The family of this 78-nucleotide RNA from Streptomyces capitiformicae is "ASpks TB sRNA". NCBI's taxonomy places the organism under Bacteria, Actinomycetes, Kitasatosporales, Streptomycetaceae, Streptomyces.
RNA sequence: CUUGACCGACCCCAGCCACAGCGGGGGUCGCUCGGGGGUCCGCCCCUGCCCGUACGUGGCGAGCAGGGCAGCCGCCUC
Dot-bracket structure: ..............(((........)))......((....(....((..(((....)))..))....)...)).....